The family of this 702-nucleotide RNA sequence from Candidatus Fervidibacter japonicus is "Group I catalytic intron". The organism belongs to Fervidibacter, within Bacteria. Rfam describes the family as follows. Group I catalytic introns are large self-splicing ribozymes. They catalyse their own excision from mRNA, tRNA and rRNA precursors in a wide range of organisms. The core secondary structure consists of 9 paired regions (P1-P9). These fold to essentially two domains - the P4-P6 domain (formed from the stacking of P5, P4, P6 and P6a helices) and the P3-P9 domain (formed from the P8, P3, P7 and P9 helices). The secondary structure mark-up for this family represents only this conserved core. Group I catalytic introns often have long ORFs inserted in loop regions. The window size for this search is chosen to minimise search time and catch the small examples. A larger window size will find more matches.

RNA sequence: GUCCUAAGGUAGCCGAACGCUGCCCUUCAUCCCGGCAACGGGAUGAAUGCAGCCGGCUGUAUGCGGGGAAGUCCUUAGAGCCUGGCUUACGAGGCGCUGUAAAAGUGCCCGUAAAAAUAGCCAGGAUUGGACAACCCGCAGGAAACCUACCAAACGGUAGGGAUCCUCAGAGACUAUACGCUGGCCUCCAAUCUGAAGGUGAGUGCCUAUGCACCUUUCGCCCGACUGGGUUGUCGGUUUCACAGACGGUGAAGGUUGCUUCUUUGUCGGUAUUAACCGAAACCCAGCCACCGCAACCGGUUACCAAGUUCUGCCUGAGUUCGUGAUUGUCCAGCACAAACGGGAUAUCCAAAUUCUCUACGCGCUCAAACGCUUCUUCCGGCAUGGAGUUGUCCGACCCAACCACGGUGACCGAUACGCCUAUCGUGUCCGAGACCUACAGGGGCUUCGGAAAAUAUGCGAUUUCUUCCUCAAACACCCGCUAAAGACGAAAAAGCGGGUUGACUUCCUUCGUUUCAAUCGUAUCCUCACGAUGAUGGAGCGCGGUGACCACCUAAGGCUCGACGGAUUGUUGGAAAUCGCUAAAAUCGCCCUUCGCAUGAAUACAGAAAACCGCUCUCAGUUGGAGCAGAUCGUAGCGGGAAUUAGGCAACGCCUUCAGAUUGGAUGAAGAGAUAGUCCACCCCCAGCCGAAAGGUUGGG
Numbered sequence: 001g002u003c004c005u006a007a008g009g010u011a012g013c014c015g016a017a018c019g020c021u022g023c024c025c026u027u028c029a030u031c032c033c034g035g036c037a038a039c040g041g042g043a044u045g046a047a048u049g050c051a052g053c054c055g056g057c058u059g060u061a062u063g064c065g066g067g068g069a070a071g072u073c074c075u076u077a078g079a080g081c082c083u084g085g086c087u088u089a090c091g092a093g094g095c096g097c098u099g100u101a102a103a104a105g106u107g108c109c110c111g112u113a114a115a116a117a118u119a120g121c122c123a124g125g126a127u128u129g130g131a132c133a134a135c136c137c138g139c140a141g142g143a144a145a146c147c148u149a150c151c152a153a154a155c156g157g158u159a160g161g162g163a164u165c166c167u168c169a170g171a172g173a174c175u176a177u178a179c180g181c182u183g184g185c186c187u188c189c190a191a192u193c194u195g196a197a198g199g200u201g202a203g204u205g206c207c208u209a210u211g212c213a214c215c216u217u218u219c220g221c222c223c224g225a226c227u228g229g230g231u232u233g234u235c236g237g238u239u240u241c242a243c244a245g246a247c248g249g250u251g252a253a254g255g256u257u258g259c260u261u262c263u264u265u266g267u268c269g270g271u272a273u274u275a276a277c278c279g280a281a282a283c284c285c286a287g288c289c290a291c292c293g294c295a296a297c298c299g300g301u302u303a304c305c306a307a308g309u310u311c312u313g314c315c316u317g318a319g320u321u322c323g324u325g326a327u328u329g330u331c332c333a334g335c336a337c338a339a340a341c342g343g344g345a346u347a348u349c350c351a352a353a354u355u356c357u358c359u360a361c362g363c364g365c366u367c368a369a370a371c372g373c374u375u376c377u378u379c380c381g382g383c384a385u386g387g388a389g390u391u392g393u394c395c396g397a398c399c400c401a402a403c404c405a406c407g408g409u410g411a412c413c414g415a416u417a418c419g420c421c422u423a424u425c426g427u428g429u430c431c432g433a434g435a436c437c438u439a440c441a442g443g444g445g446c447u448u449c450g451g452a453a454a455a456u457a458u459g460c461g462a463u464u465u466c467u468u469c470c471u472c473a474a475a476c477a478c479c480c481g482c483u484a485a486a487g488a489c490g491a492a493a494a495a496g497c498g499g500g501u502u503g504a505c506u507u508c509c510u511u512c513g514u515u516u517c518a519a520u521c522g523u524a525u526c527c528u529c530a531c532g533a534u535g536a537u538g539g540a541g542c543g544c545g546g547u548g549a550c551c552a553c554c555u556a557a558g559g560c561u562c563g564a565c566g567g568a569u570u571g572u573u574g575g576a577a578a579u580c581g582c583u584a585a586a587a588u589c590g591c592c593c594u595u596c597g598c599a600u601g602a603a604u605a606c607a608g609a610a611a612a613c614c615g616c617u618c619u620c621a622g623u624u625g626g627a628g629c630a631g632a633u634c635g636u637a638g639c640g641g642g643a644a645u646u647a648g649g650c651a652a653c654g655c656c657u658u659c660a661g662a663u664u665g666g667a668u669g670a671a672g673a674g675a676u677a678g679u680c681c682a683c684c685c686c687c688a689g690c691c692g693a694a695a696g697g698u699u700g701g702g
Stems, first nucleotide, its partner, number of pairs: 006026001008024006031042003052185004057180001062140006072131003141166002146161006170681001172680005187667015687700005